The family of this 240-nucleotide RNA sequence from Cryptosporidium parvum is "Protozoan signal recognition particle RNA".
RNA sequence: CCAGCUGUAACCAAGUGGAGUCGUUAAAGGUUUAGGAUGGGAUACUGUGUCACUACAUCCCGGAAGUAACAUUGCACGAUGGCUGCCCAUUACAAGGCUGCAGUCUCUAGAGUUGCCUUGGUGGAGACCGAGGUGACUUGUGAGAUAGUGAAACCCGUACCGCCGGAGGCUGGAAACAGAGCACGGAAAAGGGUUCGCUGUAGUACGGUGUAAGGAUAACAGUAGUUGUGUAACUUCCUG
Numbered sequence: 001c002c003a004g005c006u007g008u009a010a011c012c013a014a015g016u017g018g019a020g021u022c023g024u025u026a027a028a029g030g031u032u033u034a035g036g037a038u039g040g041g042a043u044a045c046u047g048u049g050u051c052a053c054u055a056c057a058u059c060c061c062g063g064a065a066g067u068a069a070c071a072u073u074g075c076a077c078g079a080u081g082g083c084u085g086c087c088c089a090u091u092a093c094a095a096g097g098c099u100g101c102a103g104u105c106u107c108u109a110g111a112g113u114u115g116c117c118u119u120g121g122u123g124g125a126g127a128c129c130g131a132g133g134u135g136a137c138u139u140g141u142g143a144g145a146u147a148g149u150g151a152a153a154c155c156c157g158u159a160c161c162g163c164c165g166g167a168g169g170c171u172g173g174a175a176a177c178a179g180a181g182c183a184c185g186g187a188a189a190a191g192g193g194u195u196c197g198c199u200g201u202a203g204u205a206c207g208g209u210g211u212a213a214g215g216a217u218a219a220c221a222g223u224a225g226u227u228g229u230g231u232a233a234c235u236u237c238c239u240g
Stems, first nucleotide, its partner, number of pairs: 011018002063237005069231001079226002082223004087215002090213005097204008105144003110139013146150001152195005163186003170179003

The source organism's lineage runs through Eukaryota, Sar, Apicomplexa, Eimeriorina and Cryptosporidium parvum.